[Rfam]
RNA sequence: GGAGAAGUGUCGUCUCUGGUGAGGCGGCAGGACCUCAACUACUGUUAAGGACGCCAGCGUUCUUGGCUGGGUUCGAAUCUCAUACUUCUCC
Numbered sequence: 001g002g003a004g005a006a007g008u009g010u011c012g013u014c015u016c017u018g019g020u021g022a023g024g025c026g027g028c029a030g031g032a033c034c035u036c037a038a039c040u041a042c043u044g045u046u047a048a049g050g051a052c053g054c055c056a057g058c059g060u061u062c063u064u065g066g067c068u069g070g071g072u073u074c075g076a077a078u079c080u081c082a083u084a085c086u087u088c089u090c091c
Stems, first nucleotide, its partner, number of pairs: 001091009011026006027045004032040001047064005068082004